Background: Shown here is a 66-nucleotide sequence from Monodelphis domestica, a member of the family "Selenocysteine insertion sequence 1". The match comes from Rfam's covariance-model search (45 bits). Rfam describes the family as follows. The incorporation of selenocysteine into a protein sequence is directed by an in-frame UGA codon (usually a stop codon) within the coding region of the mRNA. Selenoprotein mRNAs contain a conserved secondary structure in the 3' UTR that is required for the distinction of UGA stop from UGA selenocysteine. The selenocysteine insertion sequence (SECIS) is around 60 nt in length and adopts a hairpin structure which is sufficiently well-defined and conserved to act as a computational screen for selenoprotein genes.
RNA sequence: CCGGCACCAAUGACGGUCUGCCUUCAAACCAGGCCUCUGGUGAGGCAGACCCGAUGACCCGGCGUG
Numbered sequence: 001c002c003g004g005c006a007c008c009a010a011u012g013a014c015g016g017u018c019u020g021c022c023u024u025c026a027a028a029c030c031a032g033g034c035c036u037c038u039g040g041u042g043a044g045g046c047a048g049a050c051c052c053g054a055u056g057a058c059c060c061g062g063c064g065u066g
Base pairs, nucleotide, nucleotide: 001066004063005062015051016050017049018048019047020046021045022044023043024042030039031038032037